[Rfam]
RNA sequence: CAAGGAUCCGGGUGUGACUCCCGCGGGGCUCUUCCGGCCGCCGAUCCGCCGGACAAGC
Numbered sequence: 001c002a003a004g005g006a007u008c009c010g011g012g013u014g015u016g017a018c019u020c021c022c023g024c025g026g027g028g029c030u031c032u033u034c035c036g037g038c039c040g041c042c043g044a045u046c047c048g049c050c051g052g053a054c055a056a057g058c
Stems, first nucleotide, its partner, number of pairs: 007025001009023003033053006
The family of this 58-nucleotide RNA sequence from Jannaschia seosinensis is "sul1 RNA". It scores 52 bits against the family's covariance model. Rfam classes the family as a riboswitch. Pairs were carried over by alignment from the consensus structure, which is taken from published work. Rfam 15.1 lists 519 matches to the family in 480 species.